[Rfam]
Nucleotides: 121
Stems, first nucleotide, its partner, number of pairs: 008114006020066004068101003071097002075095003081089002
Number, partner (000 for none) and nucleotide at each position: 001000g002000c003000u004000g005000g006000c007000a008114g009113c010112g011111c012110g013109g014000g015000a016000g017000a018000g019000a020066u021065c022064u023063c024000g025000c026000c027000g028000a029000u030000u031000c032000g033000c034000g035000a036000c037000c038000g039000g040000a041000c042000c043000u044000g045000u046000c047000c048000g049000g050000g051000a052000a053000g054000g055000g056000a057000a058000u059000c060000g061000a062000a063023g064022a065021g066020g067000c068101g069100c070099c071097g072096a073000a074000g075095g076094a077093g078000c079000a080000a081089c082088c083000g084000c085000c086000c087000c088082g089081g090000a091000a092000a093077c094076u095075c096072u097071c098000a099070g100069g101068c102000a103000a104000a105000a106000g107000g108000a109013c110012c111011g112010c113009g114008c115000c116000c117000g118000u119000c120000g121000a

Rfam assigns this 121-nucleotide RNA sequence from Novosphingobium aureum to the family "Glycine riboswitch aptamer".
For this family Rfam cites "A glycine-dependent riboswitch that uses cooperative binding to control gene expression" (Mandal et al., Science, 2004).
The pairing is the family consensus, mapped onto this sequence.
NCBI's taxonomy places the organism under Bacteria, Pseudomonadati, Pseudomonadota, Sphingomonadaceae, Novosphingobium.